Shown here is a 76-nucleotide RNA from Phytohabitans houttuyneae, a member of the family "tRNA". Pairs were carried over by alignment from the consensus structure, which is taken from published work.
RNA sequence: UGCGAGGUGGGGAAGCUCGGCCGUUCCCGCGGGUCUCAUAAGCCCGAGAUCGCCGGUUCGAAUCCGGCCCUCGCUC
Numbered sequence: 001u002g003c004g005a006g007g008u009g010g011g012g013a014a015g016c017u018c019g020g021c022c023g024u025u026c027c028c029g030c031g032g033g034u035c036u037c038a039u040a041a042g043c044c045c046g047a048g049a050u051c052g053c054c055g056g057u058u059c060g061a062a063u064c065c066g067g068c069c070c071u072c073g074c075u076c
Base pairs, nucleotide, nucleotide: 002074003073004072005071006070007069010028011027012026013025030046031045032044033043034042052068053067054066055065056064
Rfam describes the family as follows. Transfer RNA (tRNA) molecules are approximately 80 nucleotides in length. NCBI's taxonomy places the organism under Bacteria, Bacillati, Actinomycetota, Micromonosporales, Phytohabitans.